[Rfam]
RNA: SAH (S-adenosyl-L-homocysteine) riboswitch aptamer
RNA sequence: ACGCCUGAGGGGCGCUGCGACCGCGCGACGGGGCUUUCCUUCCGUACGCACGGCCAGGCUCGGUCGUUUCGGGUCCAGCUUCAACCGCGCCCAUUCAUC
Numbered sequence: 001a002c003g004c005c006u007g008a009g010g011g012g013c014g015c016u017g018c019g020a021c022c023g024c025g026c027g028a029c030g031g032g033g034c035u036u037u038c039c040u041u042c043c044g045u046a047c048g049c050a051c052g053g054c055c056a057g058g059c060u061c062g063g064u065c066g067u068u069u070c071g072g073g074u075c076c077a078g079c080u081u082c083a084a085c086c087g088c089g090c091c092c093a094u095u096c097a098u099c
Stems, first nucleotide, its partner, number of pairs: 002066002005063004021053003025049002